Notes: The family of this 151-nucleotide sequence from Sporobacter termitidis is "Molybdenum/Tungsten riboswitch aptamer (Moco RNA motif)".
RNA sequence: AUUGAAUAUCAGCUUCGAGGUUUUCCGGCUACGGGCAACUAUGCCGGUUAAUCCUGAGUGUUGAACUCACAGGGUAGCGGCGGAAACGCUGCUGCCUCUUAUGACACAGGAUUUUGAGUCCUGCGAGGAAAGAAGCCUGAAAAUUACCUGU
Numbered sequence: 001a002u003u004g005a006a007u008a009u010c011a012g013c014u015u016c017g018a019g020g021u022u023u024u025c026c027g028g029c030u031a032c033g034g035g036c037a038a039c040u041a042u043g044c045c046g047g048u049u050a051a052u053c054c055u056g057a058g059u060g061u062u063g064a065a066c067u068c069a070c071a072g073g074g075u076a077g078c079g080g081c082g083g084a085a086a087c088g089c090u091g092c093u094g095c096c097u098c099u100u101a102u103g104a105c106a107c108a109g110g111a112u113u114u115u116g117a118g119u120c121c122u123g124c125g126a127g128g129a130a131a132g133a134a135g136c137c138u139g140a141a142a143a144u145u146a147c148c149u150g151u
Stems, first nucleotide, its partner, number of pairs: 004144001012136005019053004025047005033040002055069005072097011098128002